A member of the RNA family "mir-1791 microRNA precursor family" from Pygoscelis papua, 78 nucleotides long. Lineage of the source: Eukaryota > Metazoa > Eumetazoa > Dipnotetrapodomorpha > Pygoscelis. The base pairs follow the family's consensus structure, which was predicted with RNAalifold. Rfam 15.1 lists 371 matches to the family in 365 species.
RNA sequence: UGCACCGCUGGGCUGCAUCAGUCAUGCCAUGUUAUGAAACCUAACGCGAUGUGACUGAUGUAUGCUGACAUGAUGUGU
Numbered sequence: 001u002g003c004a005c006c007g008c009u010g011g012g013c014u015g016c017a018u019c020a021g022u023c024a025u026g027c028c029a030u031g032u033u034a035u036g037a038a039a040c041c042u043a044a045c046g047c048g049a050u051g052u053g054a055c056u057g058a059u060g061u062a063u064g065c066u067g068a069c070a071u072g073a074u075g076u077g078u
Base pairs, nucleotide, nucleotide: 002078003077004076005075006072007069009067010066011065014062015061016060017059018058019057020056021055022054023053024052025051026050028048030046031045032044033043034042
It scores 76 bits against the family's covariance model. Gene Ontology terms of the family: miRNA-mediated post-transcriptional gene silencing and RISC complex.